Record summary
RAGATH-18 RNA: a 76-nucleotide RNA sequence.
[Rfam]
RNA sequence: CCUAUUGAGUGUCAUAUCAAAUGAUAGUAGAAGUGAGGCUUGCUUCGCUUUGAGGUCAGACACAGUGAUGUAGGAA
Dot-bracket structure: (((((...(((((........(((.....(((..((........))..)))....))))))))......)))))..
Numbered sequence: 001c002c003u004a005u006u007g008a009g010u011g012u013c014a015u016a017u018c019a020a021a022u023g024a025u026a027g028u029a030g031a032a033g034u035g036a037g038g039c040u041u042g043c044u045u046c047g048c049u050u051u052g053a054g055g056u057c058a059g060a061c062a063c064a065g066u067g068a069u070g071u072a073g074g075a076a
Stems, first nucleotide, its partner, number of pairs: 001074005009063005022058003030051003035046002
The family's consensus secondary structure is taken from published work. The sequence is in the family's curated seed alignment. Actinobacteria, Firmicutes, Fusobacteria, Thermotogae (1 example).